TPP riboswitch aptamer (THI element): a 116-nucleotide RNA from Nocardioides pocheonensis.
Rfam's curators write: Vitamin B(1) in its active form thiamin pyrophosphate (TPP) is an essential coenzyme that is synthesised by coupling of pyrimidine and thiazole moieties in bacteria.
The base pairs follow the family's consensus structure, which is taken from published work.
A search with the family's covariance model found it, with a score of 61 bits.

RNA sequence: UCCACACGACAGGGGAGCCCGAGGCAGCGAUGCCGUGGGCUGAGAGUGCGGAACAGCCGCAGACCCUUGAACCUGCUCCGGUUAGCACCGGCGAAGGAAGUCGAAGGAGAGUCAUG
Numbered sequence: 001u002c003c004a005c006a007c008g009a010c011a012g013g014g015g016a017g018c019c020c021g022a023g024g025c026a027g028c029g030a031u032g033c034c035g036u037g038g039g040c041u042g043a044g045a046g047u048g049c050g051g052a053a054c055a056g057c058c059g060c061a062g063a064c065c066c067u068u069g070a071a072c073c074u075g076c077u078c079c080g081g082u083u084a085g086c087a088c089c090g091g092c093g094a095a096g097g098a099a100g101u102c103g104a105a106g107g108a109g110a111g112u113c114a115u116g
Stems, first nucleotide, its partner, number of pairs: 007103004011067004017040005047061005072097003078091004